[Rfam]
This 352-nucleotide RNA sequence from Lentihominibacter hominis belongs to the Rfam family "Bacterial RNase P class A". By type it is a ribozyme. The base pairs follow the family's consensus structure, which is taken from published work.

RNA sequence: UGGGUAAGACUGACAAUCGCGUAUAUCUUCGGGAUAUAUGAGGAAAGUCCGGGCUCCGCAGGGCAAGGAUGCCGGAUAACGUCCGGCGUAGGUAACUAUAGGGAAAGUGCAACAGAAACAUACCGCCGAAACGGAUAAUGCCGUGGUAAGGUUGAAAUUGUGAGGUAAGAGCUCACAGGAGAAUAUGGUAACAUAUUUUCCGUGUAAACCCCAUUCGGAGCAAGACCAAGCAGGACAUAAAAAGCGGCGGCCCGUCGCUGUCCGGGAGGUAGGUCGCAUGAGCCUGUCGGUAACGGCAGGCCAAGAUAGAUGAUUGUCUGAUACAGAACCCGGCUUAUGUCUUGCCCAAAUC
Numbered sequence: 001u002g003g004g005u006a007a008g009a010c011u012g013a014c015a016a017u018c019g020c021g022u023a024u025a026u027c028u029u030c031g032g033g034a035u036a037u038a039u040g041a042g043g044a045a046a047g048u049c050c051g052g053g054c055u056c057c058g059c060a061g062g063g064c065a066a067g068g069a070u071g072c073c074g075g076a077u078a079a080c081g082u083c084c085g086g087c088g089u090a091g092g093u094a095a096c097u098a099u100a101g102g103g104a105a106a107g108u109g110c111a112a113c114a115g116a117a118a119c120a121u122a123c124c125g126c127c128g129a130a131a132c133g134g135a136u137a138a139u140g141c142c143g144u145g146g147u148a149a150g151g152u153u154g155a156a157a158u159u160g161u162g163a164g165g166u167a168a169g170a171g172c173u174c175a176c177a178g179g180a181g182a183a184u185a186u187g188g189u190a191a192c193a194u195a196u197u198u199u200c201c202g203u204g205u206a207a208a209c210c211c212c213a214u215u216c217g218g219a220g221c222a223a224g225a226c227c228a229a230g231c232a233g234g235a236c237a238u239a240a241a242a243a244g245c246g247g248c249g250g251c252c253c254g255u256c257g258c259u260g261u262c263c264g265g266g267a268g269g270u271a272g273g274u275c276g277c278a279u280g281a282g283c284c285u286g287u288c289g290g291u292a293a294c295g296g297c298a299g300g301c302c303a304a305g306a307u308a309g310a311u312g313a314u315u316g317u318c319u320g321a322u323a324c325a326g327a328a329c330c331c332g333g334c335u336u337a338u339g340u341c342u343u344g345c346c347c348a349a350a351u352c
Stems, first nucleotide, its partner, number of pairs: 001348010012318007020040009045336003049333005054220004062253002067216005072086005087101001088099004102211002107209002109205003123151002125147003131144004159177006180199008224275004234262003244258005282301008